The family of this 99-nucleotide sequence from Brevibacterium ravenspurgense is "Glycine riboswitch aptamer". The base pairs follow the family's consensus structure.

RNA sequence: UCACGCUCUUCGGGAGAGCCCACGCGAAGCCAUCGCGUCGGCGCCGUAGGUGCAAUUCCCUCCCCGGGAAACUCUCAGGCCCAGUACUGGAGAGCGGAG
Numbered sequence: 001u002c003a004c005g006c007u008c009u010u011c012g013g014g015a016g017a018g019c020c021c022a023c024g025c026g027a028a029g030c031c032a033u034c035g036c037g038u039c040g041g042c043g044c045c046g047u048a049g050g051u052g053c054a055a056u057u058c059c060c061u062c063c064c065c066g067g068g069a070a071a072c073u074c075u076c077a078g079g080c081c082c083a084g085u086a087c088u089g090g091a092g093a094g095c096g097g098a099g
Stems, first nucleotide, its partner, number of pairs: 006094008020041002043080003046076001050074001052072001057067002
Its family is annotated with glycine biosynthetic process in the Gene Ontology.